[Rfam]
RNA sequence: UGCCGGUCUUCCCACGCUGUUUCUGCCGUGAACCCCGUCAGGCCCGGAAGGGAGCAGCGGCAGCGGCAGGCGCAGGCGCUGGGGUCGGGCUGGUGAAG
Numbered sequence: 001u002g003c004c005g006g007u008c009u010u011c012c013c014a015c016g017c018u019g020u021u022u023c024u025g026c027c028g029u030g031a032a033c034c035c036c037g038u039c040a041g042g043c044c045c046g047g048a049a050g051g052g053a054g055c056a057g058c059g060g061c062a063g064c065g066g067c068a069g070g071c072g073c074a075g076g077c078g079c080u081g082g083g084g085u086c087g088g089g090c091u092g093g094u095g096a097a098g
Base pairs, nucleotide, nucleotide: 004092005091006090007089008088010084011083012082013081014080015076017075018074019073020072022070024068025067026066027065028064029063035060036059037058038057043052044051045050
Shown here is a 98-nucleotide RNA sequence from Wenzhouxiangella limi, a member of the family "Bacterial small signal recognition particle RNA". The signal recognition particle (SRP) is a universally conserved ribonucleoprotein involved in the co-translational targeting of proteins to membranes. Taxonomically the source falls in Wenzhouxiangella (Bacteria, Pseudomonadati, Pseudomonadota, Gammaproteobacteria).